[Rfam]
RNA sequence: CACUAGCCCCGAUGGAAGCGGCAUCCUUUGUGGGGUGGCGCGAGGCGGCGGAGCGUAGCGGAGCCGUCCGAGCGCCACAUCGCAAAGAUAAAGCGGACAGCGGGAGUCAAU
Numbered sequence: 001c002a003c004u005a006g007c008c009c010c011g012a013u014g015g016a017a018g019c020g021g022c023a024u025c026c027u028u029u030g031u032g033g034g035g036u037g038g039c040g041c042g043a044g045g046c047g048g049c050g051g052a053g054c055g056u057a058g059c060g061g062a063g064c065c066g067u068c069c070g071a072g073c074g075c076c077a078c079a080u081c082g083c084a085a086a087g088a089u090a091a092a093g094c095g096g097a098c099a100g101c102g103g104g105a106g107u108c109a110a111u
Stems, first nucleotide, its partner, number of pairs: 009103003013099002018094002023089003029084005034078001